[Rfam]
Nucleotides: 094
Stems, first nucleotide, its partner, number of pairs: 001094004
Number, partner (000 for none) and nucleotide at each position: 001094g002093g003092c004091c005000g006000u007000u008000g009000a010000u011000g012000u013000g014000a015000g016000c017000a018000a019000a020000u021000a022000u023000u024000u025000g026000c027000u028000a029000c030000u031000c032000u033000u034000g035000a036000u037000g038000g039000g040000a041000a042000g043000u044000g045000a046000a047000a048000u049000a050000u051000u052000u053000u054000u055000c056000c057000c058000a059000u060000u061000u062000g063000a064000u065000g066000a067000u068000u069000u070000c071000u072000c073000a074000u075000c076000c077000a078000c079000c080000a081000a082000g083000a084000u085000c086000u087000c088000u089000g090000a091004g092003g093002u094001c
Rfam assigns this 94-nucleotide RNA sequence from Striga hermonthica to the family "Small nucleolar RNA SNORD24".
The literature on the family includes a 2001 paper in Proc Natl Acad Sci U S A by Hirose and Steitz, "Position within the host intron is critical for efficient processing of box C/D snoRNAs in mammalian cells".
A search with the family's covariance model found it, with a score of 58 bits.
Rfam links the family to the GO terms nucleolus and RNA processing.